[Rfam]
RNA sequence: GCACCUGUGGCCGAGAGGUUAAGGCGCCGCCCUGCUAAGGCGGUGGGGUCUCCCCGCGUGCGUUCGAAUCGCAUCGGGUGCG
Numbered sequence: 001g002c003a004c005c006u007g008u009g010g011c012c013g014a015g016a017g018g019u020u021a022a023g024g025c026g027c028c029g030c031c032c033u034g035c036u037a038a039g040g041c042g043g044u045g046g047g048g049u050c051u052c053c054c055c056g057c058g059u060g061c062g063u064u065c066g067a068a069u070c071g072c073a074u075c076g077g078g079u080g081c082g
Stems, first nucleotide, its partner, number of pairs: 001081007010025003027043005058074005